RNA sequence: GUCCGCGUGAGGAAAAAACGCCACACGGAGUGGAAACAAGGACACACUCCCUAGAAGCGUUUUAGAG
Numbered sequence: 001g002u003c004c005g006c007g008u009g010a011g012g013a014a015a016a017a018a019c020g021c022c023a024c025a026c027g028g029a030g031u032g033g034a035a036a037c038a039a040g041g042a043c044a045c046a047c048u049c050c051c052u053a054g055a056a057g058c059g060u061u062u063u064a065g066a067g
Base pairs, nucleotide, nucleotide: 015063016062017061018060019059020058022054027050028049029048030047031046032045